[Rfam]
RNA sequence: CUGCUGUGAAAGACGAUGGUAGUGAGAUGAUGGUUGCAUCUCGCUUCCCCGUCUUUCGCGGUAAG
Numbered sequence: 001c002u003g004c005u006g007u008g009a010a011a012g013a014c015g016a017u018g019g020u021a022g023u024g025a026g027a028u029g030a031u032g033g034u035u036g037c038a039u040c041u042c043g044c045u046u047c048c049c050c051g052u053c054u055u056u057c058g059c060g061g062u063a064a065g
Stems, first nucleotide, its partner, number of pairs: 008057008018048002021045009